[Rfam]
RNA sequence: UAAUAUCGGAUAGCGCCAGGCCUGAAAAGGUGACGAGGAUUGAACUUAUCGAAAGAUUCGGCGGAUGGUUCAAGGCAGUGUAGUCUACAGUGUUUCUACAAAGAAUAACCGAAAGGUUCUCACAAAAAGAAACACAACACCUAAA
Dot-bracket structure: ...................((((....)))).........(((((...((((.....))))......)))))((((......))))...(((((((........(.((((....)))).)........)))))))..........
Shown here is a 145-nucleotide sequence from Globicatella sp. HMSC072A10, a member of the family "glmS glucosamine-6-phosphate activated ribozyme aptamer". Taxonomically the source falls in Globicatella (Bacteria, Bacillati, Bacillota, Aerococcaceae). It is annotated as a riboswitch. It scores 80 bits against the family's covariance model.